[Rfam]
RNA: nrdJ RNA
RNA sequence: ACCUGUUGCGGGCGGCAGCUGAGGGCGCCCGCGACGCAAGACAAAACACGUGUCCAUAGGAACAAAUGGGCACUUCAGGGCGUU
Numbered sequence: 001a002c003c004u005g006u007u008g009c010g011g012g013c014g015g016c017a018g019c020u021g022a023g024g025g026c027g028c029c030c031g032c033g034a035c036g037c038a039a040g041a042c043a044a045a046a047c048a049c050g051u052g053u054c055c056a057u058a059g060g061a062a063c064a065a066a067u068g069g070g071c072a073c074u075u076c077a078g079g080g081c082g083u084u
Base pairs, nucleotide, nucleotide: 004036005035006034007033008032009031010030011029012028013027014026016024050073051072052071053070054069055068056067057066